Source information:
This 109-nucleotide RNA from Miscanthus lutarioriparius belongs to the Rfam family "MIR5565 microRNA precursor family". Rfam 15.1 lists 3,346 matches to the family in 5 species. A search with the family's covariance model found it, with a score of 94 bits. NCBI's taxonomy places the organism under Eukaryota, Streptophytina, Poaceae, Andropogonodae, Miscanthus. Pairs were carried over by alignment from the consensus structure, which was predicted with RNAalifold.
[Rfam]
RNA sequence: GUAGUCGGAUUCGUAUCAAUCCACAUGUGUUGAGAUGGAUUGGAGUUGAACUUGAACUAAAUUUAACCCCAAUCCACUCUAACAUAUAUUGAUUGAGGUAAAUCUGGCA
Numbered sequence: 001g002u003a004g005u006c007g008g009a010u011u012c013g014u015a016u017c018a019a020u021c022c023a024c025a026u027g028u029g030u031u032g033a034g035a036u037g038g039a040u041u042g043g044a045g046u047u048g049a050a051c052u053u054g055a056a057c058u059a060a061a062u063u064u065a066a067c068c069c070c071a072a073u074c075c076a077c078u079c080u081a082a083c084a085u086a087u088a089u090u091g092a093u094u095g096a097g098g099u100a101a102a103u104c105u106g107g108c109a
Base pairs, nucleotide, nucleotide: 004108005107006106007105008104009103010102011101013099014098016096017095018094019093020092021091023089025087026086027085028084029083030082031081032080036076037075038074039073040072041071042070043069045067046066047065